Shown here is a 126-nucleotide RNA from Pongo abelii, a member of the family "Small nucleolar RNA SNORA3/SNORA45 family". It scores 101 bits against the family's covariance model. Gene Ontology terms of the family: nucleolus and RNA processing. Rfam classes the family as an H/ACA-box small nucleolar RNA. The organism belongs to Pongo, within Eukaryota. A reference for the family is Gu et al. (2005), "A novel experimental approach for systematic identification of box H/ACA snoRNAs from eukaryotes", Nucleic Acids Res.
RNA sequence: GCCGAGACUACAGCCACAUCCUGACACAGCUCUUGGUGUGCUACUGUACUUGGAGAGAAUCUACUUGUCUUGAUUCACUGGUGGGGGCAGUCGUUGCUUCCUUUAGUGCCCAGAUCAGAAACAUAC
Numbered sequence: 001g002c003c004g005a006g007a008c009u010a011c012a013g014c015c016a017c018a019u020c021c022u023g024a025c026a027c028a029g030c031u032c033u034u035g036g037u038g039u040g041c042u043a044c045u046g047u048a049c050u051u052g053g054a055g056a057g058a059a060u061c062u063a064c065u066u067g068u069c070u071u072g073a074u075u076c077a078c079u080g081g082u083g084g085g086g087g088c089a090g091u092c093g094u095u096g097c098u099u100c101c102u103u104u105a106g107u108g109c110c111c112a113g114a115u116c117a118g119a120a121a122c123a124u125a126c
Stems, first nucleotide, its partner, number of pairs: 002053005007047002012042002015040006023032002064118002067115004072110001076108006083101006